This 254-nucleotide RNA sequence from Elysia chlorotica belongs to the Rfam family "RNase MRP". NCBI's taxonomy places the organism under Eukaryota, Bilateria, Protostomia, Heterobranchia, Elysia. It is annotated as a ribozyme. Pairs were carried over by alignment from the consensus structure, which is taken from published work. Gene Ontology terms of the family: ribonuclease MRP activity, ribonuclease MRP complex and rRNA processing.
[Rfam]
RNA sequence: GAGUACUUCAGCAAUCUGCUAUAUGGGCUACUUACUGGAGCCUUGUGCUUCUCCAUGCUCAUGGGAAAGUCCCCAGACCAGAGGUAGAGAUACCGCUUACCAAAUAAACUCAUCCUACAUUCCCUCAGCCCUCACUACAUGCUGGGAAGCCCCAUGGGCAGAGCAGAGGGUGGAAGUGGGUAUUUGUCACAGCAUAGUUAUGCAGGUGUUACCUACCUAGGUUUUCACUCAAUGGGGCUCAACCCUGAGGUACU
Numbered sequence: 001g002a003g004u005a006c007u008u009c010a011g012c013a014a015u016c017u018g019c020u021a022u023a024u025g026g027g028c029u030a031c032u033u034a035c036u037g038g039a040g041c042c043u044u045g046u047g048c049u050u051c052u053c054c055a056u057g058c059u060c061a062u063g064g065g066a067a068a069g070u071c072c073c074c075a076g077a078c079c080a081g082a083g084g085u086a087g088a089g090a091u092a093c094c095g096c097u098u099a100c101c102a103a104a105u106a107a108a109c110u111c112a113u114c115c116u117a118c119a120u121u122c123c124c125u126c127a128g129c130c131c132u133c134a135c136u137a138c139a140u141g142c143u144g145g146g147a148a149g150c151c152c153c154a155u156g157g158g159c160a161g162a163g164c165a166g167a168g169g170g171u172g173g174a175a176g177u178g179g180g181u182a183u184u185u186g187u188c189a190c191a192g193c194a195u196a197g198u199u200a201u202g203c204a205g206g207u208g209u210u211a212c213c214u215a216c217c218u219a220g221g222u223u224u225u226c227a228c229u230c231a232a233u234g235g236g237g238c239u240c241a242a243c244c245c246u247g248a249g250g251u252a253c254u
Stems, first nucleotide, its partner, number of pairs: 002254010014207006022063007037051005068239002071237004083094004095110001097108002112181003119177003123173002129170003140165003149159004211222004